Rfam assigns this 245-nucleotide sequence from Pseudomonas sp. v388 to the family "sRNA regulator of biofilms A". Rfam's curators write: Important for biofilm formation and pathogenicity. Bacterial strain with deleted SrbA had reduced biofilm mass. As the ability to form biofilms can contribute to the ability a pathogen to thrive within the host, the C. elegans hosts infected with the srbA deleted strain displayed significantly lower mortality rate than the wild-type strain.

RNA sequence: AUCAGAGGCCCUGCAAGAGUCUCCGGAUCGCCGCUCAGACGCACCCACAUGAGCCGAUCCGUGUCCGCACCGCCCACAAGGCAGUUUGACGAGAUUGCGACUGGAACGAAGUUGUCCCGAGGGACGGAAGCGUUUUAUCGGUCGUCAGGCACUGCCUGUCGAAUGCAGCAGCACGGCGUCCUUGACCUGUCCUGCCCAUUCGCGUCACGCCUGGACAGCCGCUCCAUCUCCGAGCCAUUUCGUUC
Numbered sequence: 001a002u003c004a005g006a007g008g009c010c011c012u013g014c015a016a017g018a019g020u021c022u023c024c025g026g027a028u029c030g031c032c033g034c035u036c037a038g039a040c041g042c043a044c045c046c047a048c049a050u051g052a053g054c055c056g057a058u059c060c061g062u063g064u065c066c067g068c069a070c071c072g073c074c075c076a077c078a079a080g081g082c083a084g085u086u087u088g089a090c091g092a093g094a095u096u097g098c099g100a101c102u103g104g105a106a107c108g109a110a111g112u113u114g115u116c117c118c119g120a121g122g123g124a125c126g127g128a129a130g131c132g133u134u135u136u137a138u139c140g141g142u143c144g145u146c147a148g149g150c151a152c153u154g155c156c157u158g159u160c161g162a163a164u165g166c167a168g169c170a171g172c173a174c175g176g177c178g179u180c181c182u183u184g185a186c187c188u189g190u191c192c193u194g195c196c197c198a199u200u201c202g203c204g205u206c207a208c209g210c211c212u213g214g215a216c217a218g219c220c221g222c223u224c225c226a227u228c229u230c231c232g233a234g235c236c237a238u239u240u241c242g243u244u245c
Stems, first nucleotide, its partner, number of pairs: 005023005011017002027058004035052003041046001060154002065149002072082003084138002088134004117127002168195004173190004204235002